The family of this 231-nucleotide RNA sequence from Miscanthus lutarioriparius is "MIR6217 microRNA precursor family". Rfam 15.1 lists 2,266 matches to the family in 13 species. NCBI's taxonomy places the organism under Eukaryota, Mesangiospermae, Liliopsida, Andropogonodae, Miscanthus. A search with the family's covariance model found it, with a score of 146 bits.
[Rfam]
Nucleotides: 231
Base pairs, nucleotide, nucleotide: 001231002230003229004228005227006226007225008224009223010222011221012220013219014218016216017215018214019213020212021211022210023209024208025207026206028204029203030202031201032200033199038195039194040193042191043190044189045188046187047186048185051181052180053179054178055177056176058174059173060172061171062170066168067167068166071163072162074160075159076158082150083149084148089145090144092142093141094140095135096134097133098132099131100129101128102127104125105124109119110118
Number, partner (000 for none) and nucleotide at each position: 001231u002230g003229g004228c005227u006226a007225c008224g009223a010222a011221a012220u013219a014218a015000c016216u017215u018214a019213u020212u021211c022210u023209g024208u025207a026206g027000g028204c029203a030202c031201u032200u033199u034000u035000g036000a037000g038195u039194u040193a041000c042191g043190a044189u045188a046187a047186u048185u049000a050000c051181u052180a053179u054178g055177u056176u057000c058174a059173u060172u061171u062170a063000c064000g065000a066168g067167a068166u069000u070000u071163u072162a073000g074160u075159a076158a077000c078000u079000u080000u081000c082150u083149u084148a085000c086000u087000a088000a089145g090144u091000u092142g093141u094140u095135u096134a097133c098132u099131a100129u101128a102127a103000c104125g105124u106000u107000a108000u109119g110118g111000u112000a113000a114000a115000u116000a117000u118110c119109c120000u121000c122000a123000u124105g125104u126000a127102u128101u129100a130000u131099u132098a133097g134096u135095a136000a137000c138000c139000u140094a141093a142092u143000u144090a145089u146000c147000a148084u149083a150082a151000a152000u153000a154000u155000g156000u157000a158076u159075u160074g161000a162072u163071a164000u165000u166068a167067u168066u169000a170062u171061a172060a173059a174058u175000u176056a177055g178054u179053a180052u181051a182000u183000a184000a185048a186047a187046u188045u189044a190043u191042c192000a193040u194039a195038a196000a197000u198000g199033g200032a201031g202030g203029u204028g205000g206026c207025u208024a209023c210022a211021g212020a213019a214018u215017a216016a217000c218014u219013u220012a221011u222010u223009u224008u225007g226006u227005a228004g229003c230002u231001a